[Rfam]
RNA sequence: GCUCCCUUAGCUCAGCUGGAUAGAGCAGCCGACUUCUAAUCGGCAGGUCGAGGGUUCGAAUCCUUCAGGGAGCG
Numbered sequence: 001g002c003u004c005c006c007u008u009a010g011c012u013c014a015g016c017u018g019g020a021u022a023g024a025g026c027a028g029c030c031g032a033c034u035u036c037u038a039a040u041c042g043g044c045a046g047g048u049c050g051a052g053g054g055u056u057c058g059a060a061u062c063c064u065u066c067a068g069g070g071a072g073c074g
Base pairs, nucleotide, nucleotide: 001073002072003071004070005069006068007067010026011025012024013023028044029043030042031041032040050066051065052064053063054062